RNA sequence: CUAAAAAAGGAGCAAUAACGUCCUCUUGAUAAAACAAGAGGGAAGAUAUUGCUCCUUUUU
Numbered sequence: 001c002u003a004a005a006a007a008a009g010g011a012g013c014a015a016u017a018a019c020g021u022c023c024u025c026u027u028g029a030u031a032a033a034a035c036a037a038g039a040g041g042g043a044a045g046a047u048a049u050u051g052c053u054c055c056u057u058u059u060u
Stems, first nucleotide, its partner, number of pairs: 006058012021043001023040006
Plastid-psbA-4 3UTR RNA: a 60-nucleotide RNA from Lactuca saligna. Taxonomically the source falls in Lactuca (Eukaryota, Spermatophyta, Mesangiospermae, Pentapetalae). Rfam's curators write: Plastid psbA-4 is a non-coding RNA (ncRNA) present in plastids. It was identified in inverted repeat sequences in the 3 prime untranslate region (3UTR) of photosystem II quinone-binding protein (psbA). Clan: Plastid-psbA 3UTR RNA clan. The family's consensus secondary structure was predicted with LocARNA.